The record is a 129-nucleotide RNA from Neotoma lepida, which matches "Small nucleolar RNA SNORA27" in Rfam. Rfam 15.1 lists 819 matches to the family in 543 species. The source organism's lineage runs through Eukaryota, Amniota, Theria, Muroidea and Neotoma. Rfam links the family to the GO terms nucleolus and RNA processing. Its Rfam clan is "SNORA27 clan". From the family's description: ACA27 is a member of the H/ACA class of snoRNA that guide the sites of modification of uridines to pseudouridines. The pairing is the family consensus, mapped onto this sequence. It is annotated as an H/ACA-box small nucleolar RNA.
RNA sequence: UAAUGAUAAUGGUGAUGACCAAUUGGACCUCAUGCCUUCAUUGGUCAUUCAAGUGGGGCAAAGGAAAUAACCUUUUAAAACUCAGGCAAACUUAGGUGUUUGUCUUAUAACCUGUCAGGGAAAACAUUG
Numbered sequence: 001u002a003a004u005g006a007u008a009a010u011g012g013u014g015a016u017g018a019c020c021a022a023u024u025g026g027a028c029c030u031c032a033u034g035c036c037u038u039c040a041u042u043g044g045u046c047a048u049u050c051a052a053g054u055g056g057g058g059c060a061a062a063g064g065a066a067a068u069a070a071c072c073u074u075u076u077a078a079a080a081c082u083c084a085g086g087c088a089a090a091c092u093u094a095g096g097u098g099u100u101u102g103u104c105u106u107a108u109a110a111c112c113u114g115u116c117a118g119g120g121a122a123a124a125c126a127u128u129g
Base pairs, nucleotide, nucleotide: 033060034059035058036057037056041052042051043050044049072120073119074118075117084105085104086103087102088101089100090099091098